Shown here is a 45-nucleotide RNA sequence from Bacilli bacterium VT-13-104, a member of the family "PreQ1 (pre queuosine) riboswitch aptamer". About the family: This family is a bacterial riboswitch that binds to the metabolite preQ1, an intermediate in the biosynthesis of the modified nucleoside queuosine from GTP. One example of this riboswitch is located in the leader of the Bacillus subtilis ykvJKLM (queCDEF) operon which encodes four genes necessary for queuosine production. PreQ1 binding to the riboswitch aptamer is thought to induce premature transcription termination within the leader to down-regulate expression of these genes. The literature on the family includes a 2004 paper in J Biol Chem by Reader et al., "Identification of four genes necessary for biosynthesis of the modified nucleoside queuosine". A search with the family's covariance model found it, with a score of 49 bits. The source organism's lineage runs through Bacteria, Bacillati, Bacillota and Bacilli. Pairs were carried over by alignment from the consensus structure.
[Rfam]
RNA sequence: AAAUCCGUGGUUCGAAAGCCUCCCACGUAAAAAAACUAAGGAGAG
Numbered sequence: 001a002a003a004u005c006c007g008u009g010g011u012u013c014g015a016a017a018g019c020c021u022c023c024c025a026c027g028u029a030a031a032a033a034a035a036c037u038a039a040g041g042a043g044a045g
Stems, first nucleotide, its partner, number of pairs: 006027005016037001